The record is a 101-nucleotide RNA from Quercus lobata, which matches "Small nucleolar RNA Z161/Z228" in Rfam. Rfam classes the family as a C/D-box small nucleolar RNA. The literature on the family includes a 2003 paper in Nucleic Acids Res by Chen et al., "The high diversity of snoRNAs in plants: identification and comparative study of 120 snoRNA genes from Oryza sativa".
[Rfam]
RNA sequence: AAAUCAAGUGAUGAAUUUGGAUUUAAAAUUCUCACGACGGUCGUCUGAGACACUUUUUAAAGUGUCGGAGUUGAUGCAAUAAUCCAAUACUUCUGAUGGUU
Numbered sequence: 001a002a003a004u005c006a007a008g009u010g011a012u013g014a015a016u017u018u019g020g021a022u023u024u025a026a027a028a029u030u031c032u033c034a035c036g037a038c039g040g041u042c043g044u045c046u047g048a049g050a051c052a053c054u055u056u057u058u059a060a061a062g063u064g065u066c067g068g069a070g071u072u073g074a075u076g077c078a079a080u081a082a083u084c085c086a087a088u089a090c091u092u093c094u095g096a097u098g099g100u101u
Stems, first nucleotide, its partner, number of pairs: 001101002004098001051064005